[Rfam]
RNA: MIR168 microRNA precursor family
RNA sequence: UUACCAGCGGCGUCAGAUUCGCUUGGUGCAAAACGGAAAUUGAUUGUCUGACACCUCCACGUGUUUUAUCAUGUUGUGAGCAGUGAUCUGUUCCCGCCUUGCACCAACUGAAUCGGAGUAUAAGGUGAAA
Numbered sequence: 001u002u003a004c005c006a007g008c009g010g011c012g013u014c015a016g017a018u019u020c021g022c023u024u025g026g027u028g029c030a031a032a033a034c035g036g037a038a039a040u041u042g043a044u045u046g047u048c049u050g051a052c053a054c055c056u057c058c059a060c061g062u063g064u065u066u067u068a069u070c071a072u073g074u075u076g077u078g079a080g081c082a083g084u085g086a087u088c089u090g091u092u093c094c095c096g097c098c099u100u101g102c103a104c105c106a107a108c109u110g111a112a113u114c115g116g117a118g119u120a121u122a123a124g125g126u127g128a129a130a
Stems, first nucleotide, its partner, number of pairs: 013117002017113004023107009034096003038092001040090001